About this RNA: Rfam assigns this 94-nucleotide RNA sequence from Pseudazoarcus pumilus to the family "Glycine riboswitch aptamer".
RNA sequence: GGGACCCGAUCGGGAGAGACCGUCGCCAUCGCGGCGCGGCGCCGAAGGAGCAACCGCCCCGGAAACUCUCAGGCAAAAGGACCGACCGGAUCGA
Number, nucleotide and partner (000 for none) at each position: 001g000002g000003g000004a000005c000006c089007c088008g087009a000010u085011c084012g083013g082014g000015a000016g000017a000018g000019a000020c039021c038022g037023u036024c000025g000026c000027c000028a000029u000030c000031g000032c000033g000034g000035c000036g023037c022038g021039g020040c000041g074042c073043c072044g070045a069046a000047g000048g068049a067050g066051c000052a000053a000054c062055c061056g000057c000058c000059c000060c000061g055062g054063a000064a000065a000066c050067u049068c048069u045070c044071a000072g043073g042074c041075a000076a000077a000078a000079g000080g000081a000082c013083c012084g011085a010086c000087c008088g007089g006090a000091u000092c000093g000094a000
The match comes from Rfam's covariance-model search (68 bits). The source organism's lineage runs through Bacteria, Pseudomonadota, Rhodocyclales, Zoogloeaceae and Pseudazoarcus.